The family of this 92-nucleotide RNA sequence from Pongo abelii is "Small nucleolar RNA SNORD116". The family has 48 seed sequences and 3,260 matches in Rfam 15.1. On this family, see Cavaille et al., Proc Natl Acad Sci U S A 2000: "Identification of brain-specific and imprinted small nucleolar RNA genes exhibiting an unusual genomic organization". The match comes from Rfam's covariance-model search (92 bits). The family's consensus secondary structure was predicted with PFOLD. Taxonomically the source falls in Pongo (Eukaryota, Sarcopterygii, Dipnotetrapodomorpha, Mammalia).
RNA sequence: GGACCAAUGAUGACUUCCAUACAUGCAUUCCUUGAAAAGCUGAACAAAAUGAGUGGGAACUCCGUACUAUUGUCUUAGCUGAACUGAGGUCC
Numbered sequence: 001g002g003a004c005c006a007a008u009g010a011u012g013a014c015u016u017c018c019a020u021a022c023a024u025g026c027a028u029u030c031c032u033u034g035a036a037a038a039g040c041u042g043a044a045c046a047a048a049a050u051g052a053g054u055g056g057g058a059a060c061u062c063c064g065u066a067c068u069a070u071u072g073u074c075u076u077a078g079c080u081g082a083a084c085u086g087a088g089g090u091c092c
Stems, first nucleotide, its partner, number of pairs: 001092005026055005032047003